[Rfam]
Rfam assigns this 74-nucleotide RNA from Alligator sinensis to the family "Mammalian CPEB3 ribozyme". Lineage of the source: Eukaryota > Craniata > Gnathostomata > Tetrapoda > Alligator.

RNA sequence: GGUUGCAAGUUUGAGGCCAUAGCAGAAGUACUCAUGGUGUGGCCAGUCAGAUUCCAAUAAAUCUGAAUUCUGAU
Numbered sequence: 001g002g003u004u005g006c007a008a009g010u011u012u013g014a015g016g017c018c019a020u021a022g023c024a025g026a027a028g029u030a031c032u033c034a035u036g037g038u039g040u041g042g043c044c045a046g047u048c049a050g051a052u053u054c055c056a057a058u059a060a061a062u063c064u065g066a067a068u069u070c071u072g073a074u
Stems, first nucleotide, its partner, number of pairs: 015044004021074001023072005028040003048065006